[Rfam]
RNA: Bacterial small subunit ribosomal RNA, nucleotides 915 to 1514
RNA sequence: UGACGGGGGCCCGCACAAGCGGUGGAGCAUGUGGUUUAAUUCGAUGCAACGCGAAGAACCUUACCAGGGCUUGACAUCCCGCGGACCUGGUGGAAACACUGGGGUGCCUAACCGUAAGGUUAGGAGCGCGGAGACAGGUGGUGCAUGGUUGUCGUCAGCUCGUGUCGUGAGAUGUUGGGUUAAGUCCCGCAACGAGCGCAACCCCUACCUCUAGUUGCCAGCGGGUGAAGCCGGGCACUCUAGAGGGACUGCCGGCGAUAAGCCGGAGGAAGGUGGGGAUGACGUCAAAUCAUCAUGCCCCUUAUGUCCUGGGCUACACACGUGCUACAAUGGCCGGUACAGAGGGAGGCGAACCCGCGAGGGGGAGCGGAACCCAGAAAGCCGGUCUCAGUUCGGAUUGCAGGCUGCAACUCGCCUGCAUGAAGGCGGAAUCGCUAGUAAUCGCCGAUCAGCAUGCGGCGGUGAAUACGUUCCCGGGCCUUGUACACACCGCCCGUCACACCACGAAAGCCGGUAACACCCGAAGCCGGUGAGCUAACCCUGGAAAGGGAGGCAGCCGUCGAAGGUGGGGCCGGUGAUUGGGGUGAAGUCGUAACAAGG
Dot-bracket structure: (((((.(((((((.((..((((((.((((((((((....((((........))))........(((((((......(((((((..(((((((....))))))).(.(((((((....))))))).)))))).))..((.((((..((((((.((...(((((((((....)))..((((......))))..)))))).....((((.(((((((...((..(((......)))))....)))))))..((.(((((.....))))).)).....))))....)).).)))...))))))))....)))))))...)).)))))))).)...(((((((.....(((..((...(((....)))...))....))).....)))))))......(....(((((((........)))))))....).....))))).....(((((((.........)))))))......))...)))))))))).))..(.(..((...((((.(((..((((((..((((....(.((((..(((..((((....)))).))).)))).)...))))..))))))..))).))))....))...)..).